[Rfam]
Nucleotides: 223
Base pairs, nucleotide, nucleotide: 001146002145003144004143005142015135016134017133026124027123028122030121031120032119036052037051038050039049040048053106054105055104056103057102058101059100147162148161149160150159
Number, partner (000 for none) and nucleotide at each position: 001146g002145g003144c004143g005142a006000u007000a008000a009000a010000c011000g012000c013000u014000u015135c016134g017133c018000g019000g020000a021000a022000u023000a024000g025000g026124c027123g028122u029000u030121a031120c032119g033000g034000a035000c036052c037051c038050g039049g040048g041000g042000g043000c044000g045000g046000u047000a048040c049039c050038c051037g052036g053106c054105g055104c056103c057102u058101c059100c060000a061000c062000c063000a064000c065000u066000u067000c068000u069000c070000g071000c072000a073000a074000g075000u076000g077000g078000c079000c080000c081000a082000c083000u084000c085000u086000u087000c088000u089000g090000a091000g092000u093000g094000g095000a096000a097000u098000a099000u100059g101058g102057g103056g104055g105054c106053g107000a108000a109000c110000u111000a112000g113000g114000a115000u116000c117000g118000a119032c120031g121030u122028g123027c124026g125000u126000a127000g128000u129000a130000a131000a132000g133017g134016c135015g136000u137000a138000g139000u140000u141000u142005u143004u144003g145002c146001u147162c148161g149160g150159c151000a152000u153000g154000g155000u156000u157000c158000c159150g160149c161148c162147g163000u164000c165000a166000u167000c168000g169000g170000g171000c172000c173000a174000a175000a176000a177000c178000c179000c180000u181000a182000g183000g184000u185000g186000c187000a188000a189000a190000c191000g192000a193000u194000a195000a196000c197000g198000u199000u200000g201000c202000u203000c204000c205000u206000u207000u208000c209000g210000c211000u212000g213000u214000c215000g216000c217000u218000g219000c220000c221000u222000a223000a

Shown here is a 223-nucleotide sequence from Roseiterribacter gracilis, a member of the family "permuted transfer-messenger RNA". The family's RNA type in Rfam is non-coding RNA gene. The organism belongs to Roseiterribacter, within Bacteria. For this family Rfam cites "Phylogenetic analysis of tmRNA secondary structure" (Williams and Bartel, RNA, 1996).